[Rfam]
RNA sequence: AUGUAAGAUGCAUCAUUUAUGUCUUUUUGAAUUGACUAAGUCGCAAUCUGAUUAUAUCAUCGUGAUUUUUUAUAUGCAAUAUAGAAGAACCUGGUAAAACGAAUCAGGUUCUUUUUUGA
Numbered sequence: 001a002u003g004u005a006a007g008a009u010g011c012a013u014c015a016u017u018u019a020u021g022u023c024u025u026u027u028u029g030a031a032u033u034g035a036c037u038a039a040g041u042c043g044c045a046a047u048c049u050g051a052u053u054a055u056a057u058c059a060u061c062g063u064g065a066u067u068u069u070u071u072a073u074a075u076g077c078a079a080u081a082u083a084g085a086a087g088a089a090c091c092u093g094g095u096a097a098a099a100c101g102a103a104u105c106a107g108g109u110u111c112u113u114u115u116u117u118g119a
Stems, first nucleotide, its partner, number of pairs: 034073001038069002042062002083115012
The record is a 119-nucleotide sequence from Bacillus sp. FJAT-26390, which matches "Bacillus sRNA ncr1015" in Rfam. A reference for the family is Irnov et al. (2010), "Identification of regulatory RNAs in Bacillus subtilis", Nucleic Acids Res. The family's RNA type in Rfam is small RNA. Pairs were carried over by alignment from the consensus structure, which is taken from published work.